[Rfam]
This 85-nucleotide RNA from Salvia splendens belongs to the Rfam family "Small nucleolar RNA SNORD34". Rfam links the family to the GO terms RNA processing and nucleolus. NCBI's taxonomy places the organism under Eukaryota, Streptophytina, Tracheophyta, Mesangiospermae, core Calosphace. Its Rfam clan is "SNORD34 clan". About the family: snoRNA U34 is found in intron 5 of the ribosomal protein L13a gene in humans. Rfam classes the family as a C/D-box small nucleolar RNA.
RNA sequence: GGAGGCCUGUGAUGAUCUAUAUAUUUGCCUACAUUGUCUGAUAGCUCUAGCUGAAGAGUGUUUUUGUACUAAGUCUGAGGUCUCU
Numbered sequence: 001g002g003a004g005g006c007c008u009g010u011g012a013u014g015a016u017c018u019a020u021a022u023a024u025u026u027g028c029c030u031a032c033a034u035u036g037u038c039u040g041a042u043a044g045c046u047c048u049a050g051c052u053g054a055a056g057a058g059u060g061u062u063u064u065u066g067u068a069c070u071a072a073g074u075c076u077g078a079g080g081u082c083u084c085u
Base pairs, nucleotide, nucleotide: 001085002084004082005081006080007079